RNA sequence: UUUGGGGGAAGUAGUGGUCCGUUAGGUUGGGGAAAAAGACAUCUUCCCUUGAAGUAAAAUUAGGUUUGCUUCCUUUUACUCCCAAAAUCUUUUUACCGUGGGUAAAAAGAAUCAUCAAAAGGAACCAAAUUUAAAUUUAACUCAAGGGGUCUUGAUGUCGUUUUUUCCAACAGGACGGAUCACUACUUUGCCCAAG
Numbered sequence: 001u002u003u004g005g006g007g008g009a010a011g012u013a014g015u016g017g018u019c020c021g022u023u024a025g026g027u028u029g030g031g032g033a034a035a036a037a038g039a040c041a042u043c044u045u046c047c048c049u050u051g052a053a054g055u056a057a058a059a060u061u062a063g064g065u066u067u068g069c070u071u072c073c074u075u076u077u078a079c080u081c082c083c084a085a086a087a088u089c090u091u092u093u094u095a096c097c098g099u100g101g102g103u104a105a106a107a108a109g110a111a112u113c114a115u116c117a118a119a120a121g122g123a124a125c126c127a128a129a130u131u132u133a134a135a136u137u138u139a140a141c142u143c144a145a146g147g148g149g150u151c152u153u154g155a156u157g158u159c160g161u162u163u164u165u166u167c168c169a170a171c172a173g174g175a176c177g178g179a180u181c182a183c184u185a186c187u188u189u190g191c192c193c194a195a196g
Stems, first nucleotide, its partner, number of pairs: 003194004008189016026171010041156003045149003049145004055139004060134009070124007089109009
Rfam assigns this 196-nucleotide RNA sequence from Medicago truncatula to the family "MIR2670 microRNA precursor family". The source organism's lineage runs through Eukaryota, eudicotyledons, rosids, Hologalegina and Medicago.